RNA sequence: CCGGCUCCGGUUCACCCGCCCGUGCGGGACCCGGCGGCC
Numbered sequence: 001c002c003g004g005c006u007c008c009g010g011u012u013c014a015c016c017c018g019c020c021c022g023u024g025c026g027g028g029a030c031c032c033g034g035c036g037g038c039c
Stems, first nucleotide, its partner, number of pairs: 003039003007034004015028005
Dot-bracket structure: ..(((.((((....(((((....)))))..))))..)))
The family of this 39-nucleotide sequence from Pseudonocardia sp. P1 is "L31-Actinobacteria ribosomal protein leader". The organism belongs to Pseudonocardia, within Bacteria. Pairs were carried over by alignment from the consensus structure, which is taken from published work. By type it is a cis-regulatory leader.